[Rfam]
RNA sequence: GUUUUGUACAGUUUGGGUAACCAGGGAAAGAGCCCGAUGAAACCCGGCAACCUGUCCUUUUAAGGAUAAGGUGCCAAUUCUCUCAGAAGAUUUUUUCUUCUGAAAGAUGAGGG
Number, nucleotide and partner (000 for none) at each position: 001g000002u112003u111004u110005u109006g108007u107008a000009c000010a000011g000012u000013u000014u000015g000016g044017g043018u042019a000020a000021c000022c000023a000024g035025g034026g033027a000028a000029a083030g082031a081032g080033c026034c025035c024036g000037a000038u000039g000040a000041a000042a018043c017044c016045c000046g075047g074048c073049a072050a000051c071052c070053u000054g067055u066056c065057c064058u000059u000060u000061u000062a000063a000064g057065g056066a055067u054068a000069a000070g052071g051072u049073g048074c047075c046076a000077a000078u000079u105080c032081u031082c030083u029084c102085a101086g100087a099088a098089g097090a000091u000092u000093u000094u000095u000096u000097c089098u088099u087100c086101u085102g084103a000104a000105a079106g000107a007108u006109g005110a004111g003112g002113g000
The family of this 113-nucleotide RNA from Caldanaerobacter subterraneus is "SAM riboswitch aptamer (S box leader)".
The sequence is in the family's curated seed alignment.